[Rfam]
The record is a 357-nucleotide sequence from Paludibacterium paludis, which matches "Bacterial RNase P class A" in Rfam.
RNA sequence: GGAGUCGGCCAGACAGUCGCCGCGCCGCAAGGCGGGGAGGAAAGUCCGGGCUCCAUAGAGCAGGAUGCCGGUUAACGGCCGGACGCCGCGAGGCGAUGGAAAGUGGAACAGAGAGCUGAACCGCCGAUGGCCUUUCUUCGGAAAGGAUCAGGCAAGGGUGAAAAGGUGUGGUAAGAGCACACCGCGGACGUGGCAACACGGACGGCAGGCUAAACCCCAUCCGGAGCAAGACCAAAUAGGGGUGCGUUAACGUGGCUCGCGUUGCACCCGGGUAGGUUGCUUGAGCCCGUCGGCAACGGCGGGCCUAGAGGAAUGACUGUCCAACGACAGAACCCGGCUUACCGGCCGACUCCCCCC
Numbered sequence: 001g002g003a004g005u006c007g008g009c010c011a012g013a014c015a016g017u018c019g020c021c022g023c024g025c026c027g028c029a030a031g032g033c034g035g036g037g038a039g040g041a042a043a044g045u046c047c048g049g050g051c052u053c054c055a056u057a058g059a060g061c062a063g064g065a066u067g068c069c070g071g072u073u074a075a076c077g078g079c080c081g082g083a084c085g086c087c088g089c090g091a092g093g094c095g096a097u098g099g100a101a102a103g104u105g106g107a108a109c110a111g112a113g114a115g116c117u118g119a120a121c122c123g124c125c126g127a128u129g130g131c132c133u134u135u136c137u138u139c140g141g142a143a144a145g146g147a148u149c150a151g152g153c154a155a156g157g158g159u160g161a162a163a164a165g166g167u168g169u170g171g172u173a174a175g176a177g178c179a180c181a182c183c184g185c186g187g188a189c190g191u192g193g194c195a196a197c198a199c200g201g202a203c204g205g206c207a208g209g210c211u212a213a214a215c216c217c218c219a220u221c222c223g224g225a226g227c228a229a230g231a232c233c234a235a236a237u238a239g240g241g242g243u244g245c246g247u248u249a250a251c252g253u254g255g256c257u258c259g260c261g262u263u264g265c266a267c268c269c270g271g272g273u274a275g276g277u278u279g280c281u282u283g284a285g286c287c288c289g290u291c292g293g294c295a296a297c298g299g300c301g302g303g304c305c306u307a308g309a310g311g312a313a314u315g316a317c318u319g320u321c322c323a324a325c326g327a328c329a330g331a332a333c334c335c336g337g338c339u340u341a342c343c344g345g346c347c348g349a350c351u352c353c354c355c356c357c
Stems, first nucleotide, its partner, number of pairs: 001353010012321007020037002023034004042340003046337005051226004058258004063222005068082005083097001084095004098217002103215002105211002121157002123153003128150003132146004165183006184206001185204002189200004230278004240269006249263005285304008

The organism belongs to Paludibacterium, within Bacteria. The family's RNA type in Rfam is ribozyme. Rfam links the family to the GO terms tRNA processing, ribonuclease P activity and dimeric ribonuclease P complex. A search with the family's covariance model found it, with a score of 316 bits.